[Rfam]
RNA sequence: AAUAAUGUUUUGGGGAGCUGGUGACCCGGCUGAGAGGAAGUAAAGAACUUCGACCCUUAUAACCUGAUUUGGGUAAUGCCAACGUAGGGACAGCCACUCUUACUAACU
Numbered sequence: 001a002a003u004a005a006u007g008u009u010u011u012g013g014g015g016a017g018c019u020g021g022u023g024a025c026c027c028g029g030c031u032g033a034g035a036g037g038a039a040g041u042a043a044a045g046a047a048c049u050u051c052g053a054c055c056c057u058u059a060u061a062a063c064c065u066g067a068u069u070u071g072g073g074u075a076a077u078g079c080c081a082a083c084g085u086a087g088g089g090a091c092a093g094c095c096a097c098u099c100u101u102a103c104u105a106a107c108u
Base pairs, nucleotide, nucleotide: 006096007095009093010092012056013055014054017030018029019028020027021026037051038050039049040048041047063088064087065086066085069082070081071080072079
Dot-bracket structure: .....((.((.(((..(((((....)))))......(((((.....)))))..)))......((((..((((......))))..))))...)).))............